[Rfam]
RNA sequence: CCCUCGGAGUAUUGUAUCAUACGAAAGUAGUGUAUUCUUAGGAACGACAAAAUCAGACACGUUGAACAGGGAA
Numbered sequence: 001c002c003c004u005c006g007g008a009g010u011a012u013u014g015u016a017u018c019a020u021a022c023g024a025a026a027g028u029a030g031u032g033u034a035u036u037c038u039u040a041g042g043a044a045c046g047a048c049a050a051a052a053u054c055a056g057a058c059a060c061g062u063u064g065a066a067c068a069g070g071g072a073a
Base pairs, nucleotide, nucleotide: 001071002070003069004068009060010059012057013056023054024053030048031047035044036043
RNA: RAGATH-18 RNA